mir-2060 microRNA precursor family: a 94-nucleotide sequence from Branchiostoma belcheri.
The family has 7 seed sequences and 3,696 matches in Rfam 15.1.
A search with the family's covariance model found it, with a score of 76 bits.
The source organism's lineage runs through Eukaryota, Eumetazoa, Leptocardii, Branchiostomatidae and Branchiostoma.
[Rfam]
RNA sequence: GAGUACUCGAGUGUGGAUAGUGUUCAGUACCAAGGACAGGCAUGUUCACUUGUGUGUGGAUGGUGUUCAGCACCAAGGACAGACAUGUUUUACU
Numbered sequence: 001g002a003g004u005a006c007u008c009g010a011g012u013g014u015g016g017a018u019a020g021u022g023u024u025c026a027g028u029a030c031c032a033a034g035g036a037c038a039g040g041c042a043u044g045u046u047c048a049c050u051u052g053u054g055u056g057u058g059g060a061u062g063g064u065g066u067u068c069a070g071c072a073c074c075a076a077g078g079a080c081a082g083a084c085a086u087g088u089u090u091u092a093c094u
Stems, first nucleotide, its partner, number of pairs: 004085001007082001009080001018075001020073005026067007034055001036053005